[Rfam]
Notes:
The family of this 144-nucleotide sequence from Sediminihabitans luteus is "ALIL pseudoknot". Gene Ontology term of the family: positive regulation of translational frameshifting. It is annotated as a cis-regulatory element. The family has 26 seed sequences and 2,146 matches in Rfam 15.1.
RNA sequence: AGCGUUUUUCGCCGCGGCGGAGCUCGACCGCAAGAUCAAGUCAGUACCGCGGUGCUGGUCGACUACAUCGACCAGCACCGCGAGGUGUUCGGGGUCGAGCCGAUCUGCAGGGUCCUUGCCGGUGCAGGGAUGCAGGUCGCUCCG
Numbered sequence: 001a002g003c004g005u006u007u008u009u010c011g012c013c014g015c016g017g018c019g020g021a022g023c024u025c026g027a028c029c030g031c032a033a034g035a036u037c038a039a040g041u042c043a044g045u046a047c048c049g050c051g052g053u054g055c056u057g058g059u060c061g062a063c064u065a066c067a068u069c070g071a072c073c074a075g076c077a078c079c080g081c082g083a084g085g086u087g088u089u090c091g092g093g094g095u096c097g098a099g100c101c102g103a104u105c106u107g108c109a110g111g112g113u114c115c116u117u118g119c120c121g122g123u124g125c126a127g128g129g130a131u132g133c134a135g136g137u138c139g140c141u142c143c144g
Stems, first nucleotide, its partner, number of pairs: 017031004090144005101139002104136006